[Rfam]
RNA sequence: AUGAAUAUUUAUUUCCGAGUUAACCAACCUACAGCGAUUGCCAUGGUUGUUAACCGUUAGGGUGUAGCUGGAAACAUUUGCGCCUCCUGUUGGAAAGGAAAUACUUAUAAGUAUAU
Numbered sequence: 001a002u003g004a005a006u007a008u009u010u011a012u013u014u015c016c017g018a019g020u021u022a023a024c025c026a027a028c029c030u031a032c033a034g035c036g037a038u039u040g041c042c043a044u045g046g047u048u049g050u051u052a053a054c055c056g057u058u059a060g061g062g063u064g065u066a067g068c069u070g071g072a073a074a075c076a077u078u079u080g081c082g083c084c085u086c087c088u089g090u091u092g093g094a095a096a097g098g099a100a101a102u103a104c105u106u107a108u109a110a111g112u113a114u115a116u
Stems, first nucleotide, its partner, number of pairs: 006107001011102006019054006026048004034041002060085008069076002086093002
About this RNA:
A member of the RNA family "Molybdenum/Tungsten riboswitch aptamer (Moco RNA motif)" from Pelotomaculum schinkii, 116 nucleotides long. The match comes from Rfam's covariance-model search (69 bits). Its family is annotated with tungstate binding, molybdenum ion binding and regulation of gene expression in the Gene Ontology. NCBI's taxonomy places the organism under Bacteria, Bacillota, Clostridia, Eubacteriales, Pelotomaculum.